[Rfam]
RNA sequence: GCUACGUGAUGAUAUUCCCAAUGACUGAACACUCUGUAGUUGAUCCAUGGUGUGAACAUGAUGUGUUGCAGUGUUUCAAGACGGGACUGAUGGCAGC
Numbered sequence: 001g002c003u004a005c006g007u008g009a010u011g012a013u014a015u016u017c018c019c020a021a022u023g024a025c026u027g028a029a030c031a032c033u034c035u036g037u038a039g040u041u042g043a044u045c046c047a048u049g050g051u052g053u054g055a056a057c058a059u060g061a062u063g064u065g066u067u068g069c070a071g072u073g074u075u076u077c078a079a080g081a082c083g084g085g086a087c088u089g090a091u092g093g094c095a096g097c
Base pairs, nucleotide, nucleotide: 001094002093003092004091
This 97-nucleotide sequence from Hemiprocne comata belongs to the Rfam family "Small nucleolar RNA SNORD21". Rfam 15.1 lists 566 matches to the family in 536 species. The organism belongs to Hemiprocne, within Eukaryota. It is annotated as a C/D-box small nucleolar RNA. On this family, see Qu et al., Nucleic Acids Res 1994: "U21, a novel small nucleolar RNA with a 13 nt. complementarity to 28S rRNA, is encoded in an intron of ribosomal protein L5 gene in chicken and mammals".